[Rfam]
Nucleotides: 082
Stems, first nucleotide, its partner, number of pairs: 001082005
Number, partner (000 for none) and nucleotide at each position: 001082g002081c003080g004079a005078g006000g007000g008000u009000g010000a011000a012000g013000a014000a015000g016000a017000a018000a019000a020000u021000c022000a023000u024000u025000c026000u027000g028000a029000u030000u031000c032000c033000c034000a035000u036000u037000g038000a039000u040000u041000u042000g043000u044000a045000a046000a047000a048000a049000a050000a051000a052000u053000g054000a055000g056000a057000u058000c059000u060000c061000u062000a063000a064000c065000c066000a067000g068000c069000u070000a071000c072000u073000a074000c075000u076000g077000a078005c079004u080003c081002g082001u